The family of this 89-nucleotide sequence from Microthlaspi erraticum is "Small nucleolar RNA R16". The family's consensus secondary structure was predicted with PFOLD. Taxonomically the source falls in Microthlaspi (Eukaryota, Streptophytina, Mesangiospermae, Brassicaceae). The literature on the family includes a 2002 paper in Mol Cell Biol by Galardi et al., "Purified box C/D snoRNPs are able to reproduce site-specific 2'-O-methylation of target RNA in vitro". A search with the family's covariance model found it, with a score of 64 bits.

RNA sequence: UAUGGCAUAUGAAGAAUUGAUUAAUUUAUGCUUAAAAACACAGAUUUUCAGUGUUGAUAAACCAUCUCCGCUUAUUGUCUGAUGCCAUA
Numbered sequence: 001u002a003u004g005g006c007a008u009a010u011g012a013a014g015a016a017u018u019g020a021u022u023a024a025u026u027u028a029u030g031c032u033u034a035a036a037a038a039c040a041c042a043g044a045u046u047u048u049c050a051g052u053g054u055u056g057a058u059a060a061a062c063c064a065u066c067u068c069c070g071c072u073u074a075u076u077g078u079c080u081g082a083u084g085c086c087a088u089a
Stems, first nucleotide, its partner, number of pairs: 003087005